A member of the RNA family "glmS glucosamine-6-phosphate activated ribozyme aptamer" from Bacilli bacterium VT-13-104, 171 nucleotides long. Gene Ontology terms of the family: catalytic activity and regulation of gene expression. The base pairs follow the family's consensus structure, which is taken from published work. Taxonomically the source falls in Bacilli (Bacteria, Bacillati, Bacillota).
RNA sequence: CUUUAUUUUAAAGCGCCAGGACUAUUUUCCGGACGACAGGGGAAAAUAGUUGACGAGGUGGAGGUUAUCGAAGUUUCGGCGGAUGCCUCCCGAUUGCACAUCUCAAUCGUUUAGCUUUGUUCCAAAAACAAUAAGGCGACUUAUUGCACAAAGGAAUGAUGCAAGAUGACU
Number, nucleotide and partner (000 for none) at each position: 001c000002u000003u000004u000005a000006u000007u000008u000009u000010a000011a000012a000013g000014c000015g000016c000017c000018a000019g000020g051021a050022c049023u048024a047025u046026u045027u044028u000029c042030c000031g000032g000033a000034c000035g000036a000037c000038a000039g000040g000041g000042g029043a000044a027045a026046a025047u024048a023049g022050u021051u020052g000053a000054c000055g000056a000057g000058g000059u000060g090061g089062a088063g087064g086065u000066u000067a000068u079069c078070g077071a076072a000073g000074u000075u000076u071077c070078g069079g068080c000081g000082g000083a000084u000085g000086c064087c063088u062089c061090c060091c109092g108093a107094u106095u105096g104097c000098a000099c000100a000101u000102c000103u000104c096105a095106a094107u093108c092109g091110u000111u000112u000113a000114g000115c161116u000117u159118u158119g157120u156121u155122c000123c000124a000125a000126a000127a000128a000129c146130a145131a144132u143133a142134a141135g140136g000137c000138g000139a000140c135141u134142u133143a132144u131145u130146g129147c000148a000149c000150a000151a000152a000153g000154g000155a121156a120157u119158g118159a117160u000161g115162c000163a000164a000165g000166a000167u000168g000169a000170c000171u000